[Rfam]
RNA sequence: UGUGGUUGUCCUAAGUCAAACUUUGUCAACUUUGACUGAGUUUGUAGAUAAAAACACCAACAUAUUUCUAAACAAAUGUAAUAAGAAAUUAUACUUAAUAGUAGCCUUAACGAUACUAGUUUGGUGUUGCUUAUGUUGGUGUUUUUUUUCUAUAAUGUCAGUCAAAGUUGAUAUAGGUUGACUUAGAACAAACCCAA
Number, nucleotide and partner (000 for none) at each position: 001u000002g000003u000004g000005g000006u191007u190008g189009u188010c000011c186012u185013a184014a183015g182016u181017c180018a179019a178020a000021c176022u175023u000024u173025g172026u171027c000028a000029a000030c000031u166032u165033u164034g163035a162036c000037u000038g000039a000040g000041u000042u000043u000044g000045u152046a151047g150048a149049u000050a147051a146052a145053a144054a000055c141056a140057c139058c000059a137060a136061c135062a134063u133064a128065u000066u000067u000068c124069u123070a122071a121072a120073c119074a000075a000076a000077u000078g000079u000080a000081a000082u000083a000084a000085g000086a000087a000088a000089u000090u000091a000092u000093a000094c000095u000096u000097a000098a000099u000100a000101g000102u000103a000104g000105c000106c000107u000108u000109a000110a000111c000112g000113a000114u000115a000116c000117u000118a000119g073120u072121u071122u070123g069124g068125u000126g000127u000128u064129g000130c000131u000132u000133a063134u062135g061136u060137u059138g000139g057140u056141g055142u000143u000144u053145u052146u051147u050148u000149u048150c047151u046152a045153u000154a000155a000156u000157g000158u000159c000160a000161g000162u035163c034164a033165a032166a031167g000168u000169u000170g000171a026172u025173a024174u000175a022176g021177g000178u019179u018180g017181a016182c015183u014184u013185a012186g011187a000188a009189c008190a007191a006192a000193c000194c000195c000196a000197a000
RNA: MIR1435 microRNA precursor family